[Rfam]
RNA sequence: GCCCAGCUUUGUAACGGAAGCUUGUUACCUGAGUGGGGCAUUGAGAUAAUGGGACAUGGGUUAGUCCCAUUGAGUCGGAUCCUUGUUGCUUUACCAUGGCUUGCCCGUUCCAAAACAAGAGUUGGGCUAUGGGACCUCAGUGAAAGCUGUGAUUGUCAAGGCCUACUAGAGUGAAGGGUACAGCGUGAGGCUGGUUACACACAGCAACGAAGACCUUCCUCUCUUGGCAGUGGGAGGAUUACAAGCUUCUUUCACCAAGAUCCAACAUGUCUCGGCAAAGCCUACCUUAACUGGACCAUCAUCUUU
Numbered sequence: 001g002c003c004c005a006g007c008u009u010u011g012u013a014a015c016g017g018a019a020g021c022u023u024g025u026u027a028c029c030u031g032a033g034u035g036g037g038g039c040a041u042u043g044a045g046a047u048a049a050u051g052g053g054a055c056a057u058g059g060g061u062u063a064g065u066c067c068c069a070u071u072g073a074g075u076c077g078g079a080u081c082c083u084u085g086u087u088g089c090u091u092u093a094c095c096a097u098g099g100c101u102u103g104c105c106c107g108u109u110c111c112a113a114a115a116c117a118a119g120a121g122u123u124g125g126g127c128u129a130u131g132g133g134a135c136c137u138c139a140g141u142g143a144a145a146g147c148u149g150u151g152a153u154u155g156u157c158a159a160g161g162c163c164u165a166c167u168a169g170a171g172u173g174a175a176g177g178g179u180a181c182a183g184c185g186u187g188a189g190g191c192u193g194g195u196u197a198c199a200c201a202c203a204g205c206a207a208c209g210a211a212g213a214c215c216u217u218c219c220u221c222u223c224u225u226g227g228c229a230g231u232g233g234g235a236g237g238a239u240u241a242c243a244a245g246c247u248u249c250u251u252u253c254a255c256c257a258a259g260a261u262c263c264a265a266c267a268u269g270u271c272u273c274g275g276c277a278a279a280g281c282c283u284a285c286c287u288u289a290a291c292u293g294g295a296c297c298a299u300c301a302u303c304u305u306u
Stems, first nucleotide, its partner, number of pairs: 001039003005022006028036002043305005049299004055293002057290001059288001060285002064281002070275005076269001077263005083257001086254001088252001098247006105237002108235005116226006124164005130158003133154002136151001138149004166171001173218005184209003192201002
Background: The record is a 306-nucleotide sequence from Hibiscus syriacus, which matches "Plant signal recognition particle RNA" in Rfam. The family's consensus secondary structure is taken from published work. The family has 63 seed sequences and 4,988 matches in Rfam 15.1. The organism belongs to Hibiscus, within Eukaryota.